Shown here is a 181-nucleotide RNA sequence from Rhizobium oryziradicis, a member of the family "FMN riboswitch aptamer (RFN element)". Lineage of the source: Bacteria > Pseudomonadota > Hyphomicrobiales > Rhizobiaceae > Rhizobium. Pairs were carried over by alignment from the consensus structure, which is taken from published work. About the family: The RFN element is a highly conserved domain that is found frequently in the 5'-untranslated regions of prokaryotic mRNAs that encode for flavin mononucleotide (FMN) biosynthesis and transport proteins. This element is a metabolite-dependent riboswitch that directly binds FMN in the absence of proteins. In Bacillus subtilis, the riboswitch most likely controls gene expression by causing premature transcription termination within the 5' untranslated region of the ribDEAHT operon and precluding access to the ribosome-binding site of ypaA mRNA.The FMN riboswitch structure, reported in present an FMN-bound six-stem junction, adopts a butterfly-like scaffold, stapled together by opposingly directed but nearly identically folded peripheral domains.
RNA sequence: CAUUAUUCUCAGGGCGGGGUGAAAGUCCCCACCGGCGGUAUCGGGCAAUGCCCGGAGCCCGCGAGCGCUUACCGGUUGAUCUUUGGGCCGCAAGAUUUUGGGCUUGAUGCAUCACCGGCAGGUUAGCAGAUCCGGUGCGAUGCCGGAGCCGACGGUAUAGUCCGGAUGAAAGAGAAUGAGA
Numbered sequence: 001c002a003u004u005a006u007u008c009u010c011a012g013g014g015c016g017g018g019g020u021g022a023a024a025g026u027c028c029c030c031a032c033c034g035g036c037g038g039u040a041u042c043g044g045g046c047a048a049u050g051c052c053c054g055g056a057g058c059c060c061g062c063g064a065g066c067g068c069u070u071a072c073c074g075g076u077u078g079a080u081c082u083u084u085g086g087g088c089c090g091c092a093a094g095a096u097u098u099u100g101g102g103c104u105u106g107a108u109g110c111a112u113c114a115c116c117g118g119c120a121g122g123u124u125a126g127c128a129g130a131u132c133c134g135g136u137g138c139g140a141u142g143c144c145g146g147a148g149c150c151g152a153c154g155g156u157a158u159a160g161u162c163c164g165g166a167u168g169a170a171a172g173a174g175a176a177u178g179a180g181a
Stems, first nucleotide, its partner, number of pairs: 003179008017029003031161002033151002035062004057149002065127002131147005153164003